[Rfam]
RNA sequence: AGGCUGCAAUAAACAUUCAUUGCUGUCGGUGGGUUUAUGCAGGAACAACUCACUGAUCAAUGAAUGCAAACUGCGGUUCG
Numbered sequence: 001a002g003g004c005u006g007c008a009a010u011a012a013a014c015a016u017u018c019a020u021u022g023c024u025g026u027c028g029g030u031g032g033g034u035u036u037a038u039g040c041a042g043g044a045a046c047a048a049c050u051c052a053c054u055g056a057u058c059a060a061u062g063a064a065u066g067c068a069a070a071c072u073g074c075g076g077u078u079c080g
Stems, first nucleotide, its partner, number of pairs: 002079002004076005014066009025057007033049003
Dot-bracket structure: .(((((((.....(((((((((..(((((((.(((...........))).)))))))))))))))).....))))).)).
Overview: The record is an 80-nucleotide RNA sequence from Oryzias latipes, which matches "mir-181 microRNA precursor family" in Rfam. Rfam 15.1 lists 3,490 matches to the family in 650 species. Pairs were carried over by alignment from the consensus structure, which was predicted with PFOLD. Taxonomically the source falls in Oryzias (Eukaryota, Euteleostomi, Euteleosteomorpha, Euacanthomorphacea). The sequence is in the family's curated seed alignment.